[Rfam]
RNA sequence: AUCCAAAGCAAACACUACUAUCAAGCUUCUUUCCAAGGUUCUUUACCUACCACAUCUAUAUCCAUCAUGUCUCCCUGCACCUGCAACUGCUGCUCCGGCGAGUGCAACUCCUGCUCUUGCUCCAGCUGCAAGGUAUGUUAUUGCUUGCU
Numbered sequence: 001a002u003c004c005a006a007a008g009c010a011a012a013c014a015c016u017a018c019u020a021u022c023a024a025g026c027u028u029c030u031u032u033c034c035a036a037g038g039u040u041c042u043u044u045a046c047c048u049a050c051c052a053c054a055u056c057u058a059u060a061u062c063c064a065u066c067a068u069g070u071c072u073c074c075c076u077g078c079a080c081c082u083g084c085a086a087c088u089g090c091u092g093c094u095c096c097g098g099c100g101a102g103u104g105c106a107a108c109u110c111c112u113g114c115u116c117u118u119g120c121u122c123c124a125g126c127u128g129c130a131a132g133g134u135a136u137g138u139u140a141u142u143g144c145u146u147g148c149u
Stems, first nucleotide, its partner, number of pairs: 076100003083093003104129003113120002
Background
A. fumigatus sRNA Afu_254: a 149-nucleotide RNA from Penicillium rubens. Taxonomically the source falls in Penicillium rubens (Eukaryota, Ascomycota, Eurotiomycetes, Aspergillaceae). The family has 6 seed sequences and 185 matches in Rfam 15.1.